[Rfam]
RNA sequence: GGUCUGUGAUGAAUAGUAAAAGGUCUGAUUGUCCCGAGACUUGCUCUUCUGUGGCCUCUUCUCCCAGCAGUUUCUCCCCAGUCAUGGCACAGUAAUGCUGUGACUGUGGGAGUGCUUGCUGACAGCAUGUGAUGUGUUCAGUUCAUGUUAACCUGAAGUAUUGGAGACAUGACUGUGAUCAGCAUCCCACAGACCUGCUCAAAGGAGUUGGGGUUUCAGCUUGUUAUAUCUGGACAUGUGAUCUGACUUUUCUGCUGAGACC
Numbered sequence: 001g002g003u004c005u006g007u008g009a010u011g012a013a014u015a016g017u018a019a020a021a022g023g024u025c026u027g028a029u030u031g032u033c034c035c036g037a038g039a040c041u042u043g044c045u046c047u048u049c050u051g052u053g054g055c056c057u058c059u060u061c062u063c064c065c066a067g068c069a070g071u072u073u074c075u076c077c078c079c080a081g082u083c084a085u086g087g088c089a090c091a092g093u094a095a096u097g098c099u100g101u102g103a104c105u106g107u108g109g110g111a112g113u114g115c116u117u118g119c120u121g122a123c124a125g126c127a128u129g130u131g132a133u134g135u136g137u138u139c140a141g142u143u144c145a146u147g148u149u150a151a152c153c154u155g156a157a158g159u160a161u162u163g164g165a166g167a168c169a170u171g172a173c174u175g176u177g178a179u180c181a182g183c184a185u186c187c188c189a190c191a192g193a194c195c196u197g198c199u200c201a202a203a204g205g206a207g208u209u210g211g212g213g214u215u216u217c218a219g220c221u222u223g224u225u226a227u228a229u230c231u232g233g234a235c236a237u238g239u240g241a242u243c244u245g246a247c248u249u250u251u252c253u254g255c256u257g258a259g260a261c262c
Stems, first nucleotide, its partner, number of pairs: 001262004037244003041240001048219001051216001061207004065121006079106008129187001131186005144171006152163001
RNA: Small Cajal body specific RNA 6
Organism: Meleagris gallopavo